[Rfam]
RNA sequence: AGGCAUGAAGAAAGAGGCAGCGUCUGAUCCACAGCCUCUGUGGCAGCUGUUGAUCAGCUAUUGUUUCUCUCUUUCUUUCUG
Dot-bracket structure: .......((((.((((((((.(.((((((..((((..........))))..)))))).).)))))))).))))........
About this RNA
The family of this 81-nucleotide RNA from Pipistrellus kuhlii is "mir-574 microRNA precursor family". Rfam links the family to the GO terms miRNA-mediated post-transcriptional gene silencing and RISC complex. Lineage of the source: Eukaryota > Chordata > Vertebrata > Teleostomi > Pipistrellus. For this family Rfam cites "Patterns of known and novel small RNAs in human cervical cancer" (Lui et al., Cancer Res, 2007). The family has 6 seed sequences and 4,084 matches in Rfam 15.1.